[Rfam]
RNA sequence: GAUAUAGCGUGAAAGGAUCUGCACCAUGAAGGAAUCAGUCGCGAGGCUGUAGUACGAAUGGUGUUGCCGGCGUUAUAUCAUACGUUUUGAAGAACGG
Numbered sequence: 001g002a003u004a005u006a007g008c009g010u011g012a013a014a015g016g017a018u019c020u021g022c023a024c025c026a027u028g029a030a031g032g033a034a035u036c037a038g039u040c041g042c043g044a045g046g047c048u049g050u051a052g053u054a055c056g057a058a059u060g061g062u063g064u065u066g067c068c069g070g071c072g073u074u075a076u077a078u079c080a081u082a083c084g085u086u087u088u089g090a091a092g093a094a095c096g097g
Base pairs, nucleotide, nucleotide: 001079002078003077004076005075006074007073008072009071010070015068016067021064022063023062024061025060026059027058031055036049037048038047039046040045083096084095085094
The family of this 97-nucleotide part of an RNA from an uncultured archaeon is "Archaeal large subunit ribosomal RNA". It is one of the family's seed sequences. The family has 91 seed sequences and 2,955 matches in Rfam 15.1. A reference for the family is Yusupov et al. (2001), "Crystal structure of the ribosome at 5.5 A resolution", Science.